[Rfam]
RNA sequence: UUCCUCACAGUUUCCCGAUUCUCAUUUUCCGCAAGGAAUGUCUAUCGCAGACCCCCCUUCAAGGCUCGUUUUUACCCAAAUCGUGUGCCCUCAAGCCUGUAUCAGGACACCUGAGUAUGCAGCACAUGGCCGGCCGUAACUGGAGGCACGACCUAGCCGGGGGAAUGAGCUUCGGAACUUAACCCUAAGAUAAGAU
Numbered sequence: 001u002u003c004c005u006c007a008c009a010g011u012u013u014c015c016c017g018a019u020u021c022u023c024a025u026u027u028u029c030c031g032c033a034a035g036g037a038a039u040g041u042c043u044a045u046c047g048c049a050g051a052c053c054c055c056c057c058u059u060c061a062a063g064g065c066u067c068g069u070u071u072u073u074a075c076c077c078a079a080a081u082c083g084u085g086u087g088c089c090c091u092c093a094a095g096c097c098u099g100u101a102u103c104a105g106g107a108c109a110c111c112u113g114a115g116u117a118u119g120c121a122g123c124a125c126a127u128g129g130c131c132g133g134c135c136g137u138a139a140c141u142g143g144a145g146g147c148a149c150g151a152c153c154u155a156g157c158c159g160g161g162g163g164a165a166u167g168a169g170c171u172u173c174g175g176a177a178c179u180u181a182a183c184c185c186u187a188a189g190a191u192a193a194g195a196u
Stems, first nucleotide, its partner, number of pairs: 009179003015175004
Rfam assigns this 196-nucleotide part of an RNA from Pochonia chlamydosporia to the family "Ascomycota telomerase RNA". It is annotated as a non-coding RNA gene. The pairing is the family consensus, mapped onto this sequence. Rfam 15.1 lists 475 matches to the family in 456 species. A search with the family's covariance model found it, with a score of 342 bits. Gene Ontology terms of the family: telomerase activity, telomerase catalytic core complex and telomere maintenance via telomerase.